[Rfam]
RNA: atoC RNA
RNA sequence: GCUAUAGUUUACUUAGAAAAAGAGUUGCGAGGGUCGAGAGAUCCUCAUUAUGCCCUAGUCGACUUUCCCUCCUAGUCGCUAGGGUGUUUUU
Numbered sequence: 001g002c003u004a005u006a007g008u009u010u011a012c013u014u015a016g017a018a019a020a021a022g023a024g025u026u027g028c029g030a031g032g033g034u035c036g037a038g039a040g041a042u043c044c045u046c047a048u049u050a051u052g053c054c055c056u057a058g059u060c061g062a063c064u065u066u067c068c069c070u071c072c073u074a075g076u077c078g079c080u081a082g083g084g085u086g087u088u089u090u091u
Base pairs, nucleotide, nucleotide: 029046030045031044032043033042034041035040052085053084054083055082056081057080058079060078061077062076063075064074